RNA: mir-395 microRNA precursor family
Organism: Camellia sinensis
RNA sequence: AUGAUCCCAGGAGUUCCCCCAAACACUUCAGUAGGAAUGUUUAAAAAAAAGGAAAAAAGAAAGUCCCCAAUGAAGUGUUGUGGGGAAACUCUAGGGUACAC
Numbered sequence: 001a002u003g004a005u006c007c008c009a010g011g012a013g014u015u016c017c018c019c020c021a022a023a024c025a026c027u028u029c030a031g032u033a034g035g036a037a038u039g040u041u042u043a044a045a046a047a048a049a050a051g052g053a054a055a056a057a058a059g060a061a062a063g064u065c066c067c068c069a070a071u072g073a074a075g076u077g078u079u080g081u082g083g084g085g086a087a088a089c090u091c092u093a094g095g096g097u098a099c100a101c
Stems, first nucleotide, its partner, number of pairs: 006096003011091005017085004022079009032069001034067002